[Rfam]
RNA: Small nucleolar RNA SNORA20
Organism: Neophocaena asiaeorientalis
RNA sequence: CUUCCCAUUUAUUUGCUGCUAUAGGCUUUCAAUGAUAUAAGCAGUUAUAUGCAUGGGAUAAAAUAGUGUUGGGCCAUUGUAAAUUGAGGUGAAGUAACCAGACCAUCUCUUCCCCAUGGUCUAGACACUG
Numbered sequence: 001c002u003u004c005c006c007a008u009u010u011a012u013u014u015g016c017u018g019c020u021a022u023a024g025g026c027u028u029u030c031a032a033u034g035a036u037a038u039a040a041g042c043a044g045u046u047a048u049a050u051g052c053a054u055g056g057g058a059u060a061a062a063a064u065a066g067u068g069u070u071g072g073g074c075c076a077u078u079g080u081a082a083a084u085u086g087a088g089g090u091g092a093a094g095u096a097a098c099c100a101g102a103c104c105a106u107c108u109c110u111u112c113c114c115c116a117u118g119g120u121c122u123a124g125a126c127a128c129u130g
Stems, first nucleotide, its partner, number of pairs: 003058006015045006022037002026034001069124008078116002086109006